[Rfam]
RNA sequence: UCGUGCUAGAUGGGGAGCCAGCGGUGCCCUGUAACCUGCAAUCCGCUAUAGCAGGAUUGAAUUCUCACUUUAGACUUUAAUCUGUUUGGUCUGACUGAUUAAAGUGGUACUGAGAAUUGGGUCCCAUGCAACAGAAACUCAUGAACUCCGUCAGAUCCGGAAGGAAGCAGCGGUAAGUGAUAAUUUCUGAGUGCCGUGGAUAAACCUAGUUUGAGCUACUAGAUCUGUAGCGCAAGUAGAUUAAUUGUCAACAUUGAGUGCACGA
Numbered sequence: 001u002c003g004u005g006c007u008a009g010a011u012g013g014g015g016a017g018c019c020a021g022c023g024g025u026g027c028c029c030u031g032u033a034a035c036c037u038g039c040a041a042u043c044c045g046c047u048a049u050a051g052c053a054g055g056a057u058u059g060a061a062u063u064c065u066c067a068c069u070u071u072a073g074a075c076u077u078u079a080a081u082c083u084g085u086u087u088g089g090u091c092u093g094a095c096u097g098a099u100u101a102a103a104g105u106g107g108u109a110c111u112g113a114g115a116a117u118u119g120g121g122u123c124c125c126a127u128g129c130a131a132c133a134g135a136a137a138c139u140c141a142u143g144a145a146c147u148c149c150g151u152c153a154g155a156u157c158c159g160g161a162a163g164g165a166a167g168c169a170g171c172g173g174u175a176a177g178u179g180a181u182a183a184u185u186u187c188u189g190a191g192u193g194c195c196g197u198g199g200a201u202a203a204a205c206c207u208a209g210u211u212u213g214a215g216c217u218a219c220u221a222g223a224u225c226u227g228u229a230g231c232g233c234a235a236g237u238a239g240a241u242u243a244a245u246u247g248u249c250a251a252c253a254u255u256g257a258g259u260g261c262a263c264g265a
Stems, first nucleotide, its partner, number of pairs: 001265006009058003012030004017025003035055005064258004069253001073249003079242010092232002095227001097225004103220002106217003114212009124199005129191001132189005139180004148173004156165003

Notes: A member of the RNA family "Bacterial large signal recognition particle RNA" from Clostridium chromiireducens, 265 nucleotides long. The source organism's lineage runs through Bacteria, Bacillati, Bacillota, Clostridia and Clostridium. It is annotated as a non-coding RNA gene. Pairs were carried over by alignment from the consensus structure, which is taken from published work.